The record is a 497-nucleotide sequence from Phocoena sinus, which matches "FGF-2 internal ribosome entry site (IRES)" in Rfam. A reference for the family is Creancier et al. (2000), "Fibroblast growth factor 2 internal ribosome entry site (IRES) activity ex vivo and in transgenic mice reveals a stringent tissue-specific regulation", J Cell Biol.

RNA sequence: UUGCGGCCAGAGCGCCCGUCCCGGAGACCGGUCGCAGAAAACGCCGAGCGAGUAGGGGGCGGCGCGCAGGAAGGGAGGAGGACCGGAGACCUGCGGGGUUGGUGGGCGUUCGCGGGUGGAGACGUAGAAGAUGUGACGCCGUGGCCCGGCUGCUGCCAGACCAGCGGACGCUGUGCCGGCGGUUGCAAAAGGAUCCCUGGCGCUGCAGCUUCGGGAGGCGGCCCUCCCGAGAGCGGCGGCUGCGGAGACACCCAGCCCUCACUCCCAGCUCCCGGGCCGCUCGGCUCCCCGCGCUCUAGGGCCGGCGGAGAGGGAAGCGGCGGAACAGUUUGAGGCUGGGGGCCCGCGGGCGCGGCCGCGUGCCGCGGGGAGGGAGGCUGGGGGGCCGGGGCCGGGGCCGCGCCCCGGAGCGCGUCCGAGGCCGGGGCCGGGGCGCGGCGACUCCCCGCGCGGCUCCAGGGACUCGGGGACCCCAACAGGGCGCUGGCGGGGCCAUG
Dot-bracket structure: ............................(((((.(........((.............(((((((((...............(.((.(....(.........((((.(....................................((..((((.(((................))).))))..........))....(.(.((((((......((((((....))))))....)))))).).)......).))))..).....).)).)....(((((.((.((((...............)))))).....................))))).........................))))))))).....))........).)))))...............(.((...)).).........((.(((.(................(.(............).)(((...)))..)..))).))............